[Rfam]
RNA sequence: GGGGGGAGGCCGGAUCCUGUGCUGUGUCCCGGCGCCCAGUAUUCCUGGGCCUGCGCUGUUGGAUUCGUGCUCCCGGCCGUGCAGCCGCCU
Numbered sequence: 001g002g003g004g005g006g007a008g009g010c011c012g013g014a015u016c017c018u019g020u021g022c023u024g025u026g027u028c029c030c031g032g033c034g035c036c037c038a039g040u041a042u043u044c045c046u047g048g049g050c051c052u053g054c055g056c057u058g059u060u061g062g063a064u065u066c067g068u069g070c071u072c073c074c075g076g077c078c079g080u081g082c083a084g085c086c087g088c089c090u
Stems, first nucleotide, its partner, number of pairs: 001090003005086002009082002011079003016076002019073001021071001023069004027063003030058006039051001042049002
mir-8799 microRNA precursor family: a 90-nucleotide RNA sequence from Canis lupus.
Rfam links the family to the GO terms RISC complex and miRNA-mediated post-transcriptional gene silencing.
The match comes from Rfam's covariance-model search (86 bits).